[Rfam]
RNA sequence: UCUAACUUAAACACAUAAUCCCUACCUCUAUUAUGUUCUUACGACUCUUGAGUCGAUCCAGUUGAAUAAGUGUUACGUUAUUAUU
Numbered sequence: 001u002c003u004a005a006c007u008u009a010a011a012c013a014c015a016u017a018a019u020c021c022c023u024a025c026c027u028c029u030a031u032u033a034u035g036u037u038c039u040u041a042c043g044a045c046u047c048u049u050g051a052g053u054c055g056a057u058c059c060a061g062u063u064g065a066a067u068a069a070g071u072g073u074u075a076c077g078u079u080a081u082u083a084u085u
Stems, first nucleotide, its partner, number of pairs: 034064002038061002042055005
Rfam assigns this 85-nucleotide RNA sequence from Halolactibacillus alkaliphilus to the family "BsrC". By type it is a small RNA. NCBI's taxonomy places the organism under Bacteria, Bacillati, Bacillota, Caryophanales, Halolactibacillus. The family's consensus secondary structure was predicted with CMfinder.